A member of the RNA family "Acido-Lenti-1 RNA" from Chloracidobacterium thermophilum, 46 nucleotides long. By type it is a small RNA. NCBI's taxonomy places the organism under Bacteria, Acidobacteriota, Chloracidobacteriales, Chloracidobacteriaceae, Chloracidobacterium thermophilum. The match comes from Rfam's covariance-model search (38 bits).
[Rfam]
RNA sequence: CCGUGGGUUGAAACCCACGGCUAAAUUCCGUUGCCGCUACGCGGCA
Numbered sequence: 001c002c003g004u005g006g007g008u009u010g011a012a013a014c015c016c017a018c019g020g021c022u023a024a025a026u027u028c029c030g031u032u033g034c035c036g037c038u039a040c041g042c043g044g045c046a
Stems, first nucleotide, its partner, number of pairs: 001020008033045005